Background
This 117-nucleotide RNA sequence from Krasilnikoviella flava belongs to the Rfam family "SAM (S-adenosyl methionine) riboswitch aptamer". The organism belongs to Krasilnikoviella, within Bacteria. The family's consensus secondary structure is taken from published work.
[Rfam]
RNA sequence: GGUCACGAGUGACCGGCGAGACGCCCUCCGCGUGCCGGUCCGGCAACCGCGCUCCCUGCGCACGGUGCCCCAGGAGGAAGACCGGCCCCGGCCGACCGGCCGUGGGAAGAGCAGGUC
Numbered sequence: 001g002g003u004c005a006c007g008a009g010u011g012a013c014c015g016g017c018g019a020g021a022c023g024c025c026c027u028c029c030g031c032g033u034g035c036c037g038g039u040c041c042g043g044c045a046a047c048c049g050c051g052c053u054c055c056c057u058g059c060g061c062a063c064g065g066u067g068c069c070c071c072a073g074g075a076g077g078a079a080g081a082c083c084g085g086c087c088c089c090g091g092c093c094g095a096c097c098g099g100c101c102g103u104g105g106g107a108a109g110a111g112c113a114g115g116u117c
Base pairs, nucleotide, nucleotide: 001083002082003081004080009041012039013038014037015036016035017034022032023031042069043068044067047065048064049063051061052060086106087105088104089102090101091100092099093098